[Rfam]
RNA sequence: GUCAGUAACCCCGCCCUAUCGGACGAGGCUAAAAAAGAAAAAUUAGAUAGUUUUCUGAAUAAGCCUUCGACUUGGAUUAACUGACCAGCUUUAGUCUGUGAAACGGCAAGUUUUACAGACUACGUUAAAAAACAGAUGACACCGUAAAAUGCUUCUCCAGUUUUACGCCAUGUCGUAAUACAUUAAACAUUUCUUUGGGGUAAGGAAAAGUGUGUACUACAUGGUAAAAUGUAAUUUCUUCGAAAUUGCAUCAAAACCGAAAUGUUUUUUAACUUUGGCGAGGAGAUAGCUAG
Numbered sequence: 001g002u003c004a005g006u007a008a009c010c011c012c013g014c015c016c017u018a019u020c021g022g023a024c025g026a027g028g029c030u031a032a033a034a035a036a037g038a039a040a041a042a043u044u045a046g047a048u049a050g051u052u053u054u055c056u057g058a059a060u061a062a063g064c065c066u067u068c069g070a071c072u073u074g075g076a077u078u079a080a081c082u083g084a085c086c087a088g089c090u091u092u093a094g095u096c097u098g099u100g101a102a103a104c105g106g107c108a109a110g111u112u113u114u115a116c117a118g119a120c121u122a123c124g125u126u127a128a129a130a131a132a133c134a135g136a137u138g139a140c141a142c143c144g145u146a147a148a149a150u151g152c153u154u155c156u157c158c159a160g161u162u163u164u165a166c167g168c169c170a171u172g173u174c175g176u177a178a179u180a181c182a183u184u185a186a187a188c189a190u191u192u193c194u195u196u197g198g199g200g201u202a203a204g205g206a207a208a209a210g211u212g213u214g215u216a217c218u219a220c221a222u223g224g225u226a227a228a229a230u231g232u233a234a235u236u237u238c239u240u241c242g243a244a245a246u247u248g249c250a251u252c253a254a255a256a257c258c259g260a261a262a263u264g265u266u267u268u269u270u271a272a273c274u275u276u277g278g279c280g281a282g283g284a285g286a287u288a289g290c291u292a293g
Stems, first nucleotide, its partner, number of pairs: 001085006008078001010028002012025002015022002029046004088279003093121012124273011139173002143167008154286005175220003179216005187211002190208007
RNA: HNH endonuclease-associated RNA and ORF (HEARO) RNA